[Rfam]
RNA sequence: AUUGUUAGUCACAUUAAUGUAAGGCAACCCGAUGUCUAAAACUGGUUUUUCCGAGGAAUUACUGGUCAUCGCGCUGUCUACUCUUGUACAGAAUGGUAAGCACGUGUAAUAGGAGGUACAAGCAACCCUAUUGCAUAUUAGGAAGUUUAGAUUUGAUUUGGCAAUGCUAGAUUUAGUAAUUUAGAGAAGUUUAAAGAUCCGCUACGACGAGCCAACAAUGGAAGAGCUAACGUCUGGAUCUAGUGAUUGUUUAAAAUGUAAAAUUGUUUGAAAAUUUUCCUUUUGAUAGUGAUAC
Numbered sequence: 001a002u003u004g005u006u007a008g009u010c011a012c013a014u015u016a017a018u019g020u021a022a023g024g025c026a027a028c029c030c031g032a033u034g035u036c037u038a039a040a041a042c043u044g045g046u047u048u049u050u051c052c053g054a055g056g057a058a059u060u061a062c063u064g065g066u067c068a069u070c071g072c073g074c075u076g077u078c079u080a081c082u083c084u085u086g087u088a089c090a091g092a093a094u095g096g097u098a099a100g101c102a103c104g105u106g107u108a109a110u111a112g113g114a115g116g117u118a119c120a121a122g123c124a125a126c127c128c129u130a131u132u133g134c135a136u137a138u139u140a141g142g143a144a145g146u147u148u149a150g151a152u153u154u155g156a157u158u159u160g161g162c163a164a165u166g167c168u169a170g171a172u173u174u175a176g177u178a179a180u181u182u183a184g185a186g187a188a189g190u191u192u193a194a195a196g197a198u199c200c201g202c203u204a205c206g207a208c209g210a211g212c213c214a215a216c217a218a219u220g221g222a223a224g225a226g227c228u229a230a231c232g233u234c235u236g237g238a239u240c241u242a243g244u245g246a247u248u249g250u251u252u253a254a255a256a257u258g259u260a261a262a263a264u265u266g267u268u269u270g271a272a273a274a275u276u277u278u279c280c281u282u283u284u285g286a287u288a289g290u291g292a293u294a295c
Base pairs, nucleotide, nucleotide: 083100084099085098086097087096104136105135106134107133108132109131110130111129112128140281141280142279143278144277145276150265151264152263158256159255165245166244167243168242169241173237174236175235176234181230182229183228184227202211203210212221213220
Annotation: A member of the RNA family "Alphacoronavirus 3'UTR" from Alphacoronavirus suis, 295 nucleotides long. Rfam's curators put it in the seed alignment. Pairs were carried over by alignment from the consensus structure. Rfam links the family to the GO term viral RNA genome replication. For this family Rfam cites "RNA structure analysis of alphacoronavirus terminal genome regions" (Madhugiri et al., Virus Res, 2014). From the family's description: The 3' UTR of alphacoronaviruses consists of two small hairpins (PK-SL2) which can form an alternate conformation (PK-SL1) where the loop region of the second hairpin interacts with the stem of the first hairpin. PK-SL2 has been confirmed in HCoV-229E and HCoV-NL63 by in vitro structure probing experiments. Downstream of this pseudoknot lies the hypervariable region (HVR), which is supported by many covarying basepairs in alphacoronaviruses. Further, a conserved octanucleotide sequence is present in the HVR. Clan: Coronavirus 3' UTR. Taxonomically the source falls in Alphacoronavirus 1 (Viruses, Orthornavirae, Tegacovirus, Alphacoronavirus suis).